[Rfam]
RNA: Small nucleolar RNA SNORA65
RNA sequence: CCUGCCACUGUGCCUGUCUGAACUGGUGACUUGCACGAUCCAGUGGUGGCUGAGAGAAAUGCCAGCCUAAGGAAGCAGGGUGAGCCUCUCCAAGUAGGUCACUCUGUGCCAACAGGUCUGGGACAUGC
Numbered sequence: 001c002c003u004g005c006c007a008c009u010g011u012g013c014c015u016g017u018c019u020g021a022a023c024u025g026g027u028g029a030c031u032u033g034c035a036c037g038a039u040c041c042a043g044u045g046g047u048g049g050c051u052g053a054g055a056g057a058a059a060u061g062c063c064a065g066c067c068u069a070a071g072g073a074a075g076c077a078g079g080g081u082g083a084g085c086c087u088c089u090c091c092a093a094g095u096a097g098g099u100c101a102c103u104c105u106g107u108g109c110c111a112a113c114a115g116g117u118c119u120g121g122g123a124c125a126u127g128c
Stems, first nucleotide, its partner, number of pairs: 005046006018033001020030001022027001062121004066116003071110002076106006085098003